[Rfam]
RNA sequence: GGAGACAGCUAGACAGUCGCCGCUUGCUUGCAAGGGGAGGAAAGUCCGGGCUCCAUAGGGUAAGGUGCCAGUUAACGGCUGGGCGGCGUGAGCCGACGGAAAGUGCAACAGAGAAGAGACCGCCAGAUGGGCAACCGUUUGGUAAGGGUGAAACGGUGCGGUAAGAGCGCACCGCGACUCUGGUAACAGAGUUGGCAUGGCAAACCCCACCUGGAGCAAGACCAAAUAGGGUUCCAUUAAGGCGUGACCCGCGCUGGAACCGGGUAGGUCGCUUGACUGUGUGAGCGAUUACACGGCUAGAUGAAUGACUGUCCACGACAGAACCCGGCUUAUCGGCUGUCUCCCACC
Numbered sequence: 001g002g003a004g005a006c007a008g009c010u011a012g013a014c015a016g017u018c019g020c021c022g023c024u025u026g027c028u029u030g031c032a033a034g035g036g037g038a039g040g041a042a043a044g045u046c047c048g049g050g051c052u053c054c055a056u057a058g059g060g061u062a063a064g065g066u067g068c069c070a071g072u073u074a075a076c077g078g079c080u081g082g083g084c085g086g087c088g089u090g091a092g093c094c095g096a097c098g099g100a101a102a103g104u105g106c107a108a109c110a111g112a113g114a115a116g117a118g119a120c121c122g123c124c125a126g127a128u129g130g131g132c133a134a135c136c137g138u139u140u141g142g143u144a145a146g147g148g149u150g151a152a153a154c155g156g157u158g159c160g161g162u163a164a165g166a167g168c169g170c171a172c173c174g175c176g177a178c179u180c181u182g183g184u185a186a187c188a189g190a191g192u193u194g195g196c197a198u199g200g201c202a203a204a205c206c207c208c209a210c211c212u213g214g215a216g217c218a219a220g221a222c223c224a225a226a227u228a229g230g231g232u233u234c235c236a237u238u239a240a241g242g243c244g245u246g247a248c249c250c251g252c253g254c255u256g257g258a259a260c261c262g263g264g265u266a267g268g269u270c271g272c273u274u275g276a277c278u279g280u281g282u283g284a285g286c287g288a289u290u291a292c293a294c295g296g297c298u299a300g301a302u303g304a305a306u307g308a309c310u311g312u313c314c315a316c317g318a319c320a321g322a323a324c325c326c327g328g329c330u331u332a333u334c335g336g337c338u339g340u341c342u343c344c345c346a347c348c
Stems, first nucleotide, its partner, number of pairs: 001344010011333001012313007020037002023034004042331003046328005051216004058250004063212005068082005083097001084095004098207002103205002105201002120147002122143009155173006174196001175194008220270004230261006241255005277296008
Shown here is a 348-nucleotide sequence from Reinekea forsetii, a member of the family "Bacterial RNase P class A". It scores 355 bits against the family's covariance model. By type it is a ribozyme. The organism belongs to Reinekea, within Bacteria.